RNA: Small nucleolar RNA Z266
Nucleotides: 095
Stems, first nucleotide, its partner, number of pairs: 001095001003093006010086001
Number, partner (000 for none) and nucleotide at each position: 001095g002000c003093a004092u005091g006090g007089c008088a009000c010086g011000a012000a013000u014000g015000a016000u017000g018000a019000g020000g021000u022000g023000a024000u025000u026000a027000g028000a029000u030000g031000g032000g033000u034000g035000a036000g037000a038000g039000g040000c041000a042000a043000a044000u045000g046000c047000c048000u049000c050000a051000a052000u053000g054000a055000a056000c057000u058000g059000a060000a061000u062000u063000u064000a065000c066000g067000a068000g069000g070000c071000u072000u073000a074000u075000u076000g077000a078000u079000a080000u081000u082000c083000u084000g085000a086010c087000a088008u089007g090006c091005c092004a093003u094000c095001u